[Rfam]
The record is a 115-nucleotide RNA sequence from Sellimonas intestinalis, which matches "TPP riboswitch aptamer (THI element)" in Rfam.
RNA sequence: AACAAGACAAAGGGGAGCCGGAGGCAGUCCGGCUGAGAGUAGGGCCGUGUGUGUCCUUUACCCUGAAACCUGAUCCGGAUCAUGCCGGCGUAGGGACCAUAUCUGAGAGAUGGAG
Numbered sequence: 001a002a003c004a005a006g007a008c009a010a011a012g013g014g015g016a017g018c019c020g021g022a023g024g025c026a027g028u029c030c031g032g033c034u035g036a037g038a039g040u041a042g043g044g045c046c047g048u049g050u051g052u053g054u055c056c057u058u059u060a061c062c063c064u065g066a067a068a069c070c071u072g073a074u075c076c077g078g079a080u081c082a083u084g085c086c087g088g089c090g091u092a093g094g095g096a097c098c099a100u101a102u103c104u105g106a107g108a109g110a111u112g113g114a115g
Stems, first nucleotide, its partner, number of pairs: 006103002009100001011064004016058001017033005041057004069094004075088004
The match comes from Rfam's covariance-model search (59 bits).